[Rfam]
RNA sequence: CUGGAGACUAAGAAAAUCGAGUCCUUGAAGUCAAGCUGACUCUGCGGUUAGCCUCCGAAAUGAAAAGGUUGAUAGAACAGGUCUUGUUUGCAAAAUAAGUUCAAGACCUGCUUCUCUACCAACAGCA
Numbered sequence: 001c002u003g004g005a006g007a008c009u010a011a012g013a014a015a016a017u018c019g020a021g022u023c024c025u026u027g028a029a030g031u032c033a034a035g036c037u038g039a040c041u042c043u044g045c046g047g048u049u050a051g052c053c054u055c056c057g058a059a060a061u062g063a064a065a066a067g068g069u070u071g072a073u074a075g076a077a078c079a080g081g082u083c084u085u086g087u088u089u090g091c092a093a094a095a096u097a098a099g100u101u102c103a104a105g106a107c108c109u110g111c112u113u114c115u116c117u118a119c120c121a122a123c124a125g126c127a
Base pairs, nucleotide, nucleotide: 003056004055005054006053008051009050010049011048017044019042020041021040022039023038024035025034026033027032067120068119069118071116072115074113079109080108081107082106083105084104085103086102
About this RNA: The family of this 127-nucleotide RNA sequence from Callithrix jacchus is "Small Cajal body specific RNA 15". Lineage of the source: Eukaryota > Amniota > Haplorrhini > Cebidae > Callithrix. By type it is a small Cajal body RNA. It scores 130 bits against the family's covariance model. For this family Rfam cites "Cajal body-specific small nuclear RNAs: a novel class of 2'-O-methylation and pseudouridylation guide RNAs" (Darzacq et al., EMBO J, 2002). The family's consensus secondary structure was predicted with RNAfold. scaRNAs are a specific class of small nuclear RNAs which localise to the Cajal bodies and guide the modification of RNA polymerase II transcribed spliceosomal RNAs U1, U2, U4, U5 and U12. ACA45 belongs to the H/ACA box class of guide RNAs as it has the predicted hairpin-hinge-hairpin-tail structure, the conserved H/ACA-box motifs and is found associated with GAR1. ACA45 is predicted to guide the pseudouridylation of residue U37 of the U2 spliceosomal snRNA.